[Rfam]
RNA sequence: AGCGACGCGCAAGUGGGCCGAAGGGCGACUCCUGCGCCGCAGGGACCCCAGCCCGGUCCCGGAAAGCUGUGC
Numbered sequence: 001a002g003c004g005a006c007g008c009g010c011a012a013g014u015g016g017g018c019c020g021a022a023g024g025g026c027g028a029c030u031c032c033u034g035c036g037c038c039g040c041a042g043g044g045a046c047c048c049c050a051g052c053c054c055g056g057u058c059c060c061g062g063a064a065a066g067c068u069g070u071g072c
Stems, first nucleotide, its partner, number of pairs: 003039002006036003042060006

Overview: The record is a 72-nucleotide sequence from Mycolicibacterium rhodesiae, which matches "hya RNA" in Rfam. The family's RNA type in Rfam is cis-regulatory element. Lineage of the source: Bacteria > Actinomycetota > Mycobacteriaceae > Mycobacterium (subgen. Mycolicibacterium) > Mycolicibacterium rhodesiae. The sequence is in the family's curated seed alignment.